[Rfam]
RNA sequence: AAAUAAAUAGACGAAAGGACUGACUGUAUAAUAAUGAUUUACUAAUUCAACUUAUUUGAAAUAAAUAUUUCAAACUCUAAGUUAUAGGAUUAGUCUGAUCAUUUUUAUAAGUCGGUUUGUGACACCUAUUGCGUCAAAUGCUGUUGGUACAAUAGGGACUUUUAAAUAUGAGACCAGAUUAAUCCUUCCAAAUUCUUUGGAAGGAUUUUUAU
Dot-bracket structure: ...............(((.......((...((..........((((((((((..((((((((....)))))))).....))))...))))))))...))....)))...........((.....(((((((..................)))))))......))................(((((((((((.....))))))))))).....
Numbered sequence: 001a002a003a004u005a006a007a008u009a010g011a012c013g014a015a016a017g018g019a020c021u022g023a024c025u026g027u028a029u030a031a032u033a034a035u036g037a038u039u040u041a042c043u044a045a046u047u048c049a050a051c052u053u054a055u056u057u058g059a060a061a062u063a064a065a066u067a068u069u070u071c072a073a074a075c076u077c078u079a080a081g082u083u084a085u086a087g088g089a090u091u092a093g094u095c096u097g098a099u100c101a102u103u104u105u106u107a108u109a110a111g112u113c114g115g116u117u118u119g120u121g122a123c124a125c126c127u128a129u130u131g132c133g134u135c136a137a138a139u140g141c142u143g144u145u146g147g148u149a150c151a152a153u154a155g156g157g158a159c160u161u162u163u164a165a166a167u168a169u170g171a172g173a174c175c176a177g178a179u180u181a182a183u184c185c186u187u188c189c190a191a192a193u194u195c196u197u198u199g200g201a202a203g204g205a206u207u208u209u210u211a212u
Stems, first nucleotide, its partner, number of pairs: 016106003026099002031094002043092006049083004055074008118164002125156007181207011
Description: The family of this 212-nucleotide RNA sequence from Mammaliicoccus sciuri is "Bacillus sRNA ncr1575". The sequence is in the family's curated seed alignment. It is annotated as a small RNA. Taxonomically the source falls in Mammaliicoccus (Bacteria, Bacillota, Bacilli, Staphylococcaceae). A reference for the family is Irnov et al. (2010), "Identification of regulatory RNAs in Bacillus subtilis", Nucleic Acids Res.